mir-395 microRNA precursor family: a 113-nucleotide RNA sequence from Brassica napus. The family has 25 seed sequences and 2,798 matches in Rfam 15.1. From the family's description: mir-395 was identified in both Arabidopsis thaliana and Oryza sativa computationally and was later experimentally verified. mir-395 is thought to target mRNAs coding for ATP sulphurylases. The mature sequence is excised from the 3' arm of the hairpin. Gene Ontology terms of the family: RISC complex and miRNA-mediated post-transcriptional gene silencing. The match comes from Rfam's covariance-model search (77 bits).
RNA sequence: AUGUCCUCUUGAGUUCCCUUUAACGCUUCAUUGUUCAUACUUGGUUGUCUAGUAAUCUACGGAUAAAUCUGUCCAAUGAACACUGAAGUGUUUGGGGGGACUCUAGGUGGCAU
Numbered sequence: 001a002u003g004u005c006c007u008c009u010u011g012a013g014u015u016c017c018c019u020u021u022a023a024c025g026c027u028u029c030a031u032u033g034u035u036c037a038u039a040c041u042u043g044g045u046u047g048u049c050u051a052g053u054a055a056u057c058u059a060c061g062g063a064u065a066a067a068u069c070u071g072u073c074c075a076a077u078g079a080a081c082a083c084u085g086a087a088g089u090g091u092u093u094g095g096g097g098g099g100a101c102u103c104u105a106g107g108u109g110g111c112a113u
Stems, first nucleotide, its partner, number of pairs: 005109001007107003011103010022093002024090007032082007